[Rfam]
A member of the RNA family "Purine riboswitch aptamer" from Clostridium gasigenes, 102 nucleotides long. A search with the family's covariance model found it, with a score of 82 bits. A reference for the family is Mandal and Breaker (2004), "Adenine riboswitches and gene activation by disruption of a transcription terminator", Nat Struct Mol Biol. Pairs were carried over by alignment from the consensus structure, which is taken from published work.
RNA sequence: GAAUAAAGAUUAAGAAAAACUCGUAUAAAGUUGGUGAUAUGGACCAGAAGUUUCUACCUGCUAACCGUAAAUAAGCAGACUACGAGGUAUUGCAUAAUAAGG
Numbered sequence: 001g002a003a004u005a006a007a008g009a010u011u012a013a014g015a016a017a018a019a020c021u022c023g024u025a026u027a028a029a030g031u032u033g034g035u036g037a038u039a040u041g042g043a044c045c046a047g048a049a050g051u052u053u054c055u056a057c058c059u060g061c062u063a064a065c066c067g068u069a070a071a072u073a074a075g076c077a078g079a080c081u082a083c084g085a086g087g088u089a090u091u092g093c094a095u096a097a098u099a100a101g102g
Base pairs, nucleotide, nucleotide: 018088020086021085022084023083024082025081031047032046033045034044035043058078059077060076061075062074064072